A member of the RNA family "permuted transfer-messenger RNA" from Rhodobacteraceae bacterium HTCC2150, 212 nucleotides long.
About the family: Bacterial tmRNA, also known as 10Sa RNA or SsrA, is named for its dual tRNA and mRNA-like properties. Its role is to liberate the mRNA from a stalled ribosome. To accomplish this part of the tmRNA is used as a reading frame that ends in a translation stop signal. The broken mRNA is replaced in the ribosome by the tmRNA and translation of the tmRNA leads to addition of a proteolysis tag to the incomplete protein enabling recognition by a protease.
A search with the family's covariance model found it, with a score of 142 bits.

[Rfam]
RNA sequence: GGCGAUAAACGCGCUCGCAAUACACGGAUCGGACCCGGGGGCGGUACCCGGCGACUCCACCAACAAACCCUUCAUUUGGGGGCGCAUGGGGUCGAAAUAGGAUCGACGGACGUCUAAAGGGGUUAGCUUUUGCUCGGUGAGAUACCACCGAUAUCGGUUCAAUAUAGCUAGUUGCAAAUGACAACAAAGCACCGAUGGCUCUGGCUGCGUAA
Numbered sequence: 001g002g003c004g005a006u007a008a009a010c011g012c013g014c015u016c017g018c019a020a021u022a023c024a025c026g027g028a029u030c031g032g033a034c035c036c037g038g039g040g041g042c043g044g045u046a047c048c049c050g051g052c053g054a055c056u057c058c059a060c061c062a063a064c065a066a067a068c069c070c071u072u073c074a075u076u077u078g079g080g081g082g083c084g085c086a087u088g089g090g091g092u093c094g095a096a097a098u099a100g101g102a103u104c105g106a107c108g109g110a111c112g113u114c115u116a117a118a119g120g121g122g123u124u125a126g127c128u129u130u131u132g133c134u135c136g137g138u139g140a141g142a143u144a145c146c147a148c149c150g151a152u153a154u155c156g157g158u159u160c161a162a163u164a165u166a167g168c169u170a171g172u173u174g175c176a177a178a179u180g181a182c183a184a185c186a187a188a189g190c191a192c193c194g195a196u197g198g199c200u201c202u203g204g205c206u207g208c209g210u211a212a
Stems, first nucleotide, its partner, number of pairs: 001134005013123004025112002029109003035051005052094007135150004